The family of this 87-nucleotide sequence from Bacillus sp. V3-13 is "c-di-GMP-I riboswitch aptamer".
[Rfam]
RNA sequence: UAUGCCUUAGGGCAAAUUUUACGAAAGUAAAAGACGCAAAGCCACGGGCCUAAAGCAGUGAGUUGUCAUGGCAGCCGGGUUGCAUAA
Numbered sequence: 001u002a003u004g005c006c007u008u009a010g011g012g013c014a015a016a017u018u019u020u021a022c023g024a025a026a027g028u029a030a031a032a033g034a035c036g037c038a039a040a041g042c043c044a045c046g047g048g049c050c051u052a053a054a055g056c057a058g059u060g061a062g063u064u065g066u067c068a069u070g071g072c073a074g075c076c077g078g079g080u081u082g083c084a085u086a087a
Base pairs, nucleotide, nucleotide: 012037013036017032018031019030020029021028022027040081041080042079043078045077046076047075048072049071050070055066056065057064058063
Its family is annotated with cyclic-di-GMP binding in the Gene Ontology. The base pairs follow the family's consensus structure, which is taken from published work.